[Rfam]
RNA sequence: UACGGAGAUAGAGGCGCGAGAUGUAAUAGUAAUUUUGUGGAGUUUGGUAAGCAGAGAAGCAUAAUAAAAGGACUGAUCGCCGAAGUGAUAAUUAUACUAACGAUUAUUGCUGGUUAUAUACUUAAUAGGUAUGUGACUGUCAUCAUUUGAUGGAGUGCUAACUCAUUG
Numbered sequence: 001u002a003c004g005g006a007g008a009u010a011g012a013g014g015c016g017c018g019a020g021a022u023g024u025a026a027u028a029g030u031a032a033u034u035u036u037g038u039g040g041a042g043u044u045u046g047g048u049a050a051g052c053a054g055a056g057a058a059g060c061a062u063a064a065u066a067a068a069a070g071g072a073c074u075g076a077u078c079g080c081c082g083a084a085g086u087g088a089u090a091a092u093u094a095u096a097c098u099a100a101c102g103a104u105u106a107u108u109g110c111u112g113g114u115u116a117u118a119u120a121c122u123u124a125a126u127a128g129g130u131a132u133g134u135g136a137c138u139g140u141c142a143u144c145a146u147u148u149g150a151u152g153g154a155g156u157g158c159u160a161a162c163u164c165a166u167u168g
Stems, first nucleotide, its partner, number of pairs: 006163002009160003016080004023073002032065003036061003084111010095100001112138011140153005
Dot-bracket structure: .....((.(((....((((...((.......(((.(((....................))).)))......))...))))...((((((((((.(....).))))))))))(((((((((((.....))))))))))).(((((....)))))....))).)).....